[Rfam]
RNA sequence: GGAAGUGUGUGUCUUCUGUUUGUGAACAUUGGCACAUUGAACAUUGAAUCGCUAGUGUUUAAUUAGCAGAUCUGCUCAGUGGCUGACGUCACACCCUAUUUCCUCUCAGUAAUUUGCUGGCAGACGCGGGAAGUACGCUGCUUGGUCUUCCGUUGCUACGACAGCGGGUCGUAACGCACGGUUAGUGUGUGGAGCAGAAUUUGGCCCCGUCUCUUUCUACCUGACACCUUCAUGGUGCAGGCGGGGGACGGGUCCACCCUUCUGAAUUCAUGCCGAGGCUAGUAGCAAAUUCUUAGCGACGCCAUUUUCAAAAUUUCUUGGUUAAGUAACUUGGUAGCUUAGCUUCGGAUUUGUAAAUUUGCUGUUCAGAACACUUCCACGCUGGUGGCAUUGCCGAGCAAUUUGCCCAUUAUUUUU
Numbered sequence: 001g002g003a004a005g006u007g008u009g010u011g012u013c014u015u016c017u018g019u020u021u022g023u024g025a026a027c028a029u030u031g032g033c034a035c036a037u038u039g040a041a042c043a044u045u046g047a048a049u050c051g052c053u054a055g056u057g058u059u060u061a062a063u064u065a066g067c068a069g070a071u072c073u074g075c076u077c078a079g080u081g082g083c084u085g086a087c088g089u090c091a092c093a094c095c096c097u098a099u100u101u102c103c104u105c106u107c108a109g110u111a112a113u114u115u116g117c118u119g120g121c122a123g124a125c126g127c128g129g130g131a132a133g134u135a136c137g138c139u140g141c142u143u144g145g146u147c148u149u150c151c152g153u154u155g156c157u158a159c160g161a162c163a164g165c166g167g168g169u170c171g172u173a174a175c176g177c178a179c180g181g182u183u184a185g186u187g188u189g190u191g192g193a194g195c196a197g198a199a200u201u202u203g204g205c206c207c208c209g210u211c212u213c214u215u216u217c218u219a220c221c222u223g224a225c226a227c228c229u230u231c232a233u234g235g236u237g238c239a240g241g242c243g244g245g246g247g248a249c250g251g252g253u254c255c256a257c258c259c260u261u262c263u264g265a266a267u268u269c270a271u272g273c274c275g276a277g278g279c280u281a282g283u284a285g286c287a288a289a290u291u292c293u294u295a296g297c298g299a300c301g302c303c304a305u306u307u308u309c310a311a312a313a314u315u316u317c318u319u320g321g322u323u324a325a326g327u328a329a330c331u332u333g334g335u336a337g338c339u340u341a342g343c344u345u346c347g348g349a350u351u352u353g354u355a356a357a358u359u360u361g362c363u364g365u366u367c368a369g370a371a372c373a374c375u376u377c378c379a380c381g382c383u384g385g386u387g388g389c390a391u392u393g394c395c396g397a398g399c400a401a402u403u404u405g406c407c408c409a410u411u412a413u414u415u416u417u
Stems, first nucleotide, its partner, number of pairs: 001378008022092004030088001037079003042074002046072001048071003051067004387407003390402005
RNA: Arthropod 7SK RNA
Organism: Ceratitis capitata